RNA sequence: CCUCCCAUCAGAGUGGUUGUGAUGUGGUGCUAUUGAUUCAUAUCACAGCCAGCUUUGAUGAGCGGAA
Numbered sequence: 001c002c003u004c005c006c007a008u009c010a011g012a013g014u015g016g017u018u019g020u021g022a023u024g025u026g027g028u029g030c031u032a033u034u035g036a037u038u039c040a041u042a043u044c045a046c047a048g049c050c051a052g053c054u055u056u057g058a059u060g061a062g063c064g065g066a067a
Stems, first nucleotide, its partner, number of pairs: 006060008014051009025042002
The record is a 67-nucleotide RNA sequence from Atta cephalotes, which matches "mir-2 microRNA precursor family" in Rfam. The literature on the family includes a 2001 paper in Science by Lee and Ambros, "An extensive class of small RNAs in Caenorhabditis elegans". Its family is annotated with RISC complex and miRNA-mediated post-transcriptional gene silencing in the Gene Ontology. The family has 56 seed sequences and 918 matches in Rfam 15.1. The match comes from Rfam's covariance-model search (64 bits).